RNA sequence: GGUCUGUGAUGAGUAGUAAAAGGUCUGAUUAUCCCAGGACUUGCAGUUCCAUGCCCUCUUCUCCCAGCAGCUUCUCCCCAGCCAUGGCACAGCAAUGAUGUGGCUGGCAGAAUGUUUGCUGAUAGCAUGAGAUGUACUCAGGUCAUGUUGUCCUGGAGCAGCGGAGACAUGACAUGGGAUCAGCAUCCAACAGUCCUGCUUGAAGGAGUUUGGGGUCUUGGAUUGGUCUACCUGGACAUGUGAUCUGACUUUUCUGCUGAGACC
Numbered sequence: 001g002g003u004c005u006g007u008g009a010u011g012a013g014u015a016g017u018a019a020a021a022g023g024u025c026u027g028a029u030u031a032u033c034c035c036a037g038g039a040c041u042u043g044c045a046g047u048u049c050c051a052u053g054c055c056c057u058c059u060u061c062u063c064c065c066a067g068c069a070g071c072u073u074c075u076c077c078c079c080a081g082c083c084a085u086g087g088c089a090c091a092g093c094a095a096u097g098a099u100g101u102g103g104c105u106g107g108c109a110g111a112a113u114g115u116u117u118g119c120u121g122a123u124a125g126c127a128u129g130a131g132a133u134g135u136a137c138u139c140a141g142g143u144c145a146u147g148u149u150g151u152c153c154u155g156g157a158g159c160a161g162c163g164g165a166g167a168c169a170u171g172a173c174a175u176g177g178g179a180u181c182a183g184c185a186u187c188c189a190a191c192a193g194u195c196c197u198g199c200u201u202g203a204a205g206g207a208g209u210u211u212g213g214g215g216u217c218u219u220g221g222a223u224u225g226g227u228c229u230a231c232c233u234g235g236a237c238a239u240g241u242g243a244u245c246u247g248a249c250u251u252u253u254c255u256g257c258u259g260a261g262a263c264c
Stems, first nucleotide, its partner, number of pairs: 001264004035247004040242001044220003049215002061208004065121006078107009129188001131187005146172001149169004154164001
RNA: Small Cajal body specific RNA 6